About this RNA:
A member of the RNA family "Iron response element I" from Columba livia, 41 nucleotides long. The family's RNA type in Rfam is cis-regulatory element. Rfam links the family to the GO term response to iron ion. On this family, see Hentze et al., Science 1987: "Identification of the iron-responsive element for the translational regulation of human ferritin mRNA". It scores 35 bits against the family's covariance model.
[Rfam]
RNA sequence: AUGUUUUCCUCUUCAACAGAACUUAGAUUGAAAGAAAACAU
Dot-bracket structure: ((((((((.(.((((((........).))))))))))))))